[Rfam]
RNA sequence: UCAUUGUGAAAGACAUGGGUAGUGAGAUGUUCAUUAUUUUUUUUUGUCUCACUACCUUGUCUUUCAUGAGGUA
Numbered sequence: 001u002c003a004u005u006g007u008g009a010a011a012g013a014c015a016u017g018g019g020u021a022g023u024g025a026g027a028u029g030u031u032c033a034u035u036a037u038u039u040u041u042u043u044u045u046g047u048c049u050c051a052c053u054a055c056c057u058u059g060u061c062u063u064u065c066a067u068g069a070g071g072u073a
Stems, first nucleotide, its partner, number of pairs: 008065008017057003021053009